[Rfam]
Background: The family of this 129-nucleotide sequence from Mola mola is "Small nucleolar RNA SNORA55".

RNA sequence: GCACCUCAGCAACCCGGUCAAUCAUGUGAAGUGUUUGAUGCGGGCAUAGAUGGUGCUACAGAGAUUCAAUGUAAAUCCAGAUGGACCUCCUCUUCCCGUGGAGCCUGUCUCUACAACUUUGACACACAA
Numbered sequence: 001g002c003a004c005c006u007c008a009g010c011a012a013c014c015c016g017g018u019c020a021a022u023c024a025u026g027u028g029a030a031g032u033g034u035u036u037g038a039u040g041c042g043g044g045c046a047u048a049g050a051u052g053g054u055g056c057u058a059c060a061g062a063g064a065u066u067c068a069a070u071g072u073a074a075a076u077c078c079a080g081a082u083g084g085a086c087c088u089c090c091u092c093u094u095c096c097c098g099u100g101g102a103g104c105c106u107g108u109c110u111c112u113a114c115a116a117c118u119u120u121g122a123c124a125c126a127c128a129a
Base pairs, nucleotide, nucleotide: 001056002055003054004053005052013044014043015042016041019037020036066122067121068120069119071117079110080109081108082107083106084105086103089101090100
Rfam links the family to the GO terms nucleolus and RNA processing. A search with the family's covariance model found it, with a score of 60 bits. ACA55 is a member of the H/ACA class of snoRNA that guide the sites of modification of uridines to pseudouridines. The family's RNA type in Rfam is H/ACA-box small nucleolar RNA.